[Rfam]
Shown here is a 200-nucleotide RNA sequence from Thermobacillus composti, a member of the family "c-di-AMP riboswitch aptamer (ydaO/yuaA leader)".
The organism belongs to Thermobacillus composti, within Bacteria.
The match comes from Rfam's covariance-model search (81 bits).
RNA sequence: CAUUUCCAGACGCUGAAUCUCCCGGGGGACGGGAGAGCGGGGGAACCAGUCAGCGGCAACCGGACAAUGCGGAUUGCCGGCACCGCUGAAUCCGAUCGGGGUGAAUUGACCGGACGCGCGAUCCGAAGCGGCGAAAGGUCAUAGGGCGGCUCUCGGCCCGAACCCGUCAGCUAACUCCGCAGGCGUAUUUGAGAGUGAUC
Numbered sequence: 001c002a003u004u005u006c007c008a009g010a011c012g013c014u015g016a017a018u019c020u021c022c023c024g025g026g027g028g029a030c031g032g033g034a035g036a037g038c039g040g041g042g043g044a045a046c047c048a049g050u051c052a053g054c055g056g057c058a059a060c061c062g063g064a065c066a067a068u069g070c071g072g073a074u075u076g077c078c079g080g081c082a083c084c085g086c087u088g089a090a091u092c093c094g095a096u097c098g099g100g101g102u103g104a105a106u107u108g109a110c111c112g113g114a115c116g117c118g119c120g121a122u123c124c125g126a127a128g129c130g131g132c133g134a135a136a137g138g139u140c141a142u143a144g145g146g147c148g149g150c151u152c153u154c155g156g157c158c159c160g161a162a163c164c165c166g167u168c169a170g171c172u173a174a175c176u177c178c179g180c181a182g183g184c185g186u187a188u189u190u191g192a193g194a195g196u197g198a199u200c
Stems, first nucleotide, its partner, number of pairs: 011185004018036007037180006047098001099165003107141004144159004